The record is a 298-nucleotide RNA sequence from Auanema sp. JU1783, which matches "Metazoan signal recognition particle RNA" in Rfam. The match comes from Rfam's covariance-model search (229 bits). The organism belongs to Auanema, within Eukaryota. Gene Ontology terms of the family: SRP-dependent cotranslational protein targeting to membrane, signal sequence recognition and signal recognition particle, endoplasmic reticulum targeting. By type it is a non-coding RNA gene. The signal recognition particle (SRP) is a universally conserved ribonucleoprotein.

RNA sequence: ACUGGGCGUCGUGGCGGGCGUCUGUGAGCCAGCUUCUAGGCAGUAGAUAGUUGUGGAUUAAGUGAGGUCAGGAGUCCUGGUUGUGCUGUGUGAUACGGCGACCGGGCGUCCGAGCCAAGCGAUACGUCACUAGGGUCUAACUCUCGAAGGAAGGUUAGACCCGGGUGGACAAGGAGAGGUGCAUGGCCGAGGCCCGAAAGGGAGCAAGCAGAAGCCUCCGCGCAUUGCAGUGGCCGGAUAGCGCCCGCGAGUAUCUCCUCGCAGUCAGCCUGUCCAAUACCUUGAGACCAACUGUCGA
Numbered sequence: 001a002c003u004g005g006g007c008g009u010c011g012u013g014g015c016g017g018g019c020g021u022c023u024g025u026g027a028g029c030c031a032g033c034u035u036c037u038a039g040g041c042a043g044u045a046g047a048u049a050g051u052u053g054u055g056g057a058u059u060a061a062g063u064g065a066g067g068u069c070a071g072g073a074g075u076c077c078u079g080g081u082u083g084u085g086c087u088g089u090g091u092g093a094u095a096c097g098g099c100g101a102c103c104g105g106g107c108g109u110c111c112g113a114g115c116c117a118a119g120c121g122a123u124a125c126g127u128c129a130c131u132a133g134g135g136u137c138u139a140a141c142u143c144u145c146g147a148a149g150g151a152a153g154g155u156u157a158g159a160c161c162c163g164g165g166u167g168g169a170c171a172a173g174g175a176g177a178g179g180u181g182c183a184u185g186g187c188c189g190a191g192g193c194c195c196g197a198a199a200g201g202g203a204g205c206a207a208g209c210a211g212a213a214g215c216c217u218c219c220g221c222g223c224a225u226u227g228c229a230g231u232g233g234c235c236g237g238a239u240a241g242c243g244c245c246c247g248c249g250a251g252u253a254u255c256u257c258c259u260c261g262c263a264g265u266c267a268g269c270c271u272g273u274c275c276a277a278u279a280c281c282u283u284g285a286g287a288c289c290a291a292c293u294g295u296c297g298a
Stems, first nucleotide, its partner, number of pairs: 001044003004023007028041003046296008058285005066275002069272004077268008088258001090256001092255005103247007110237002114234004119228005125222003128167004133162010144151002176218005186209002193202003